[Rfam]
Nucleotides: 154
Base pairs, nucleotide, nucleotide: 004153005152006151011029012028013027014026016024037116038115039114040113047059048058049057050056062111063110064109065108066107069088070087071086072084073083074082090101091100092099127147128146129145130144131143132142133141134140
Number, partner (000 for none) and nucleotide at each position: 001000a002000c003000c004153a005152a006151a007000g008000a009000g010000g011029c012028a013027u014026u015000u016024a017000c018000c019000a020000c021000g022000g023000g024016u025000u026014a027013a028012u029011g030000c031000u032000c033000a034000u035000u036000u037116c038115g039114c040113g041000g042000u043000c044000a045000a046000a047059g048058u049057c050056u051000u052000g053000g054000g055000a056050g057049g058048a059047u060000a061000g062111g063110a064109u065108c066107u067000c068000a069088g070087g071086c072084g073083c074082g075000c076000u077000u078000u079000g080000c081000u082074c083073g084072c085000a086071g087070c088069c089000c090101c091100c092099g093000g094000g095000a096000a097000a098000c099092c100091g101090g102000g103000a104000a105000a106000c107066a108065g109064a110063u111062c112000a113040c114039g115038c116037g117000a118000c119000a120000c121000c122000u123000g124000a125000a126000c127147a128146a129145c130144a131143a132142g133141g134140c135000c136000a137000a138000g139000u140134g141133c142132c143131u144130u145129g146128u147127u148000u149000u150000u151006u152005u153004u154000u